[Rfam]
RNA sequence: GAGGCAGUGAUAGUGAGAGCUGAACAGUCUGUGAGGGGGUUUCCAUGUUCACUCAUAAAUUUAUUUGUGAUGCGUGAGCAGCGCCCUCACAGUCUGCACAGCUCUCUUUAUUUCUCCCUC
Numbered sequence: 001g002a003g004g005c006a007g008u009g010a011u012a013g014u015g016a017g018a019g020c021u022g023a024a025c026a027g028u029c030u031g032u033g034a035g036g037g038g039g040u041u042u043c044c045a046u047g048u049u050c051a052c053u054c055a056u057a058a059a060u061u062u063a064u065u066u067g068u069g070a071u072g073c074g075u076g077a078g079c080a081g082c083g084c085c086c087u088c089a090c091a092g093u094c095u096g097c098a099c100a101g102c103u104c105u106c107u108u109u110a111u112u113u114c115u116c117c118c119u120c
Stems, first nucleotide, its partner, number of pairs: 001120004006115002009112005015106008025096003029092009
RNA: MIR533 microRNA precursor family
Organism: Ceratodon purpureus